RNA: Actinobacteria sRNA Ms_IGR-7
RNA sequence: CGGAAGUGUCUUUCAGAAGACGGUUGGUUGACGCCUGAACAACAUUAAUCAUCCCAGUUCGAAAGGGGCUUUUCUCAUUUCGACUCCCCACGUCGAAGCAUUUCGUCCACGCAUUGAG
Numbered sequence: 001c002g003g004a005a006g007u008g009u010c011u012u013u014c015a016g017a018a019g020a021c022g023g024u025u026g027g028u029u030g031a032c033g034c035c036u037g038a039a040c041a042a043c044a045u046u047a048a049u050c051a052u053c054c055c056a057g058u059u060c061g062a063a064a065g066g067g068g069c070u071u072u073u074c075u076c077a078u079u080u081c082g083a084c085u086c087c088c089c090a091c092g093u094c095g096a097a098g099c100a101u102u103u104c105g106u107c108c109a110c111g112c113a114u115u116g117a118g
Stems, first nucleotide, its partner, number of pairs: 002073006009066005016060002022054002025051004030046001033043001099116002102113001104111002
Dot-bracket structure: .((((((.(((((..((....((.((((.(..(.........)..).)))).))....)).))))).)))))).........................((.(.((....)).).))..